PhrS: a 215-nucleotide sequence from Metapseudomonas resinovorans. On this family, see Sonnleitner et al., Mol Microbiol 2011: "The small RNA PhrS stimulates synthesis of the Pseudomonas aeruginosa quinolone signal". Lineage of the source: Bacteria > Pseudomonadati > Pseudomonadota > Gammaproteobacteria > Metapseudomonas resinovorans.
[Rfam]
RNA sequence: AUCGAAGCAACAACGCCACACAAGCAGGAGGCAGAUCAUGUUCGUCGAUACAGUGGUUCUCGCCGGUAUAGGCACCGUCGGUCUCAUGGUCGCCUUCUUCGUAGGCGUCGGUUACUUCAUCUGGAAAGACUCGCACAAACGCGCUCCGCGUUGAGUCACUCCGGGUUUACAGGCACGCAAGGCACCUCGGGCGACUUCGGUCGCCCAUUUUUUUG
Numbered sequence: 001a002u003c004g005a006a007g008c009a010a011c012a013a014c015g016c017c018a019c020a021c022a023a024g025c026a027g028g029a030g031g032c033a034g035a036u037c038a039u040g041u042u043c044g045u046c047g048a049u050a051c052a053g054u055g056g057u058u059c060u061c062g063c064c065g066g067u068a069u070a071g072g073c074a075c076c077g078u079c080g081g082u083c084u085c086a087u088g089g090u091c092g093c094c095u096u097c098u099u100c101g102u103a104g105g106c107g108u109c110g111g112u113u114a115c116u117u118c119a120u121c122u123g124g125a126a127a128g129a130c131u132c133g134c135a136c137a138a139a140c141g142c143g144c145u146c147c148g149c150g151u152u153g154a155g156u157c158a159c160u161c162c163g164g165g166u167u168u169a170c171a172g173g174c175a176c177g178c179a180a181g182g183c184a185c186c187u188c189g190g191g192c193g194a195c196u197u198c199g200g201u202c203g204c205c206c207a208u209u210u211u212u213u214u215g
Base pairs, nucleotide, nucleotide: 008104010102011101053063054062055061080091081090082089083088173183174182176181189206190205191204192203193202194201195200